[Rfam]
RNA sequence: GAUUAAUGAUUAAAAGUUUUACUACAGAAUUUUAUAAUUAUGAGGCUUUCUACACUUGAUCUGAGAUCA
Dot-bracket structure: ((((........(((((((.......)))))))...............................)))).
Numbered sequence: 001g002a003u004u005a006a007u008g009a010u011u012a013a014a015a016g017u018u019u020u021a022c023u024a025c026a027g028a029a030u031u032u033u034a035u036a037a038u039u040a041u042g043a044g045g046c047u048u049u050c051u052a053c054a055c056u057u058g059a060u061c062u063g064a065g066a067u068c069a
Stems, first nucleotide, its partner, number of pairs: 001068004013033007
Source information: A member of the RNA family "Small nucleolar RNA U2-30" from Neomonachus schauinslandi, 69 nucleotides long. The family's consensus secondary structure is taken from published work. Its family is annotated with nucleolus and RNA processing in the Gene Ontology. A search with the family's covariance model found it, with a score of 76 bits. For this family Rfam cites "Guide RNAs with 5' Caps and Novel Box C/D snoRNA-like Domains for Modification of snRNAs in Metazoa" (Tycowski et al., Curr Biol, 2004). The family's RNA type in Rfam is C/D-box small nucleolar RNA.